[Rfam]
RNA: Xanthomonas sRNA sX9
RNA sequence: ACGUACUUGAAGUACGUUCCGGUUCCUGCGCUCCGUCCGCCUUGCGCUCGGGCUGCUCGCUACGAUUUCUUCGCC
Numbered sequence: 001a002c003g004u005a006c007u008u009g010a011a012g013u014a015c016g017u018u019c020c021g022g023u024u025c026c027u028g029c030g031c032u033c034c035g036u037c038c039g040c041c042u043u044g045c046g047c048u049c050g051g052g053c054u055g056c057u058c059g060c061u062a063c064g065a066u067u068u069c070u071u072c073g074c075c
Stems, first nucleotide, its partner, number of pairs: 002016005020035003025030001045073002050069003